[Rfam]
RNA sequence: GGACAUAAACGCGCUCGUAAUAAGCGGAUCGGACCCGGGGGCGGUACCCGGCGGCUCCACCAAAUUCCCUCGUUGGGGGCUCAUGGGGCCGAAACAGGAUCGACGGACGUCUAAAGGGGUUGCUUUGUCUCGGUGAGCUACCACCGAUAUCGGUGCAGAAAAGUACAAUUGCCAACGACAAUCGUGCUCCGGUCGCCGUUGCAGCCUAA
Number, nucleotide and partner (000 for none) at each position: 001g130002g129003a128004c127005a126006u000007a000008a000009a000010c000011g000012c000013g120014c119015u118016c117017g000018u000019a000020a000021u000022a000023a000024g000025c109026g108027g000028a000029u106030c105031g104032g000033a000034c000035c051036c050037g049038g048039g047040g000041g000042c000043g000044g000045u000046a000047c039048c038049c037050g036051g035052c091053g090054g089055c088056u087057c086058c085059a000060c000061c000062a000063a000064a000065u000066u000067c000068c000069c000070u000071c000072g000073u000074u000075g000076g000077g000078g000079g000080c000081u000082c000083a000084u000085g058086g057087g056088g055089c054090c053091g052092a000093a000094a000095c000096a000097g000098g000099a000100u000101c000102g000103a000104c031105g030106g029107a000108c026109g025110u000111c000112u000113a000114a000115a000116g000117g016118g015119g014120u013121u000122g000123c000124u000125u000126u005127g004128u003129c002130u001131c146132g145133g144134u143135g000136a000137g000138c000139u000140a000141c000142c000143a134144c133145c132146g131147a000148u000149a000150u000151c000152g000153g000154u000155g000156c000157a000158g000159a000160a000161a000162a000163g000164u000165a000166c000167a000168a000169u000170u000171g000172c000173c000174a000175a000176c000177g000178a000179c000180a000181a000182u000183c000184g000185u000186g000187c000188u000189c000190c000191g000192g000193u000194c000195g000196c000197c000198g000199u000200u000201g000202c000203a000204g000205c000206c000207u000208a000209a000

Notes: This 209-nucleotide sequence from Palleronia salina belongs to the Rfam family "permuted transfer-messenger RNA". A search with the family's covariance model found it, with a score of 150 bits. For this family Rfam cites "Phylogenetic analysis of tmRNA secondary structure" (Williams and Bartel, RNA, 1996). From the family's description: Bacterial tmRNA, also known as 10Sa RNA or SsrA, is named for its dual tRNA and mRNA-like properties. Rfam links the family to the GO term RNA catabolic process.